[Rfam]
RNA sequence: GGCCGUUCUCGGGGCGGGGCGAAAUUCCCCACCGGCGGUAUAGCCCGCGAGCGCCCCUGCCAAAAGCGGGGGGUCAGCAGAUCCGGUGUGAUUCCGGGGCCGACGGUUAAAGUCCGGAUGGAAGAGAAUGGAC
Numbered sequence: 001g002g003c004c005g006u007u008c009u010c011g012g013g014g015c016g017g018g019g020c021g022a023a024a025u026u027c028c029c030c031a032c033c034g035g036c037g038g039u040a041u042a043g044c045c046c047g048c049g050a051g052c053g054c055c056c057c058u059g060c061c062a063a064a065a066g067c068g069g070g071g072g073g074u075c076a077g078c079a080g081a082u083c084c085g086g087u088g089u090g091a092u093u094c095c096g097g098g099g100c101c102g103a104c105g106g107u108u109a110a111a112g113u114c115c116g117g118a119u120g121g122a123a124g125a126g127a128a129u130g131g132a133c
Stems, first nucleotide, its partner, number of pairs: 003131008017029003031113002033102002035048004043100002051078002082098005104116003

Overview
The record is a 133-nucleotide RNA sequence from Rhodobacteraceae bacterium PARR1, which matches "FMN riboswitch aptamer (RFN element)" in Rfam. A search with the family's covariance model found it, with a score of 116 bits. The RFN element is a highly conserved domain that is found frequently in the 5'-untranslated regions of prokaryotic mRNAs that encode for flavin mononucleotide (FMN) biosynthesis and transport proteins.